[Rfam]
RNA sequence: GUUCCAGUACCUCAGUAGGAUAGAGGGUUCGCCUCCUAAGCGAAACGUCGCAGGUUCGAUUCCUGUCUGGAACG
Dot-bracket structure: (((((((..((((.........)))).(((((.......))))).....(((((.......)))))))))))).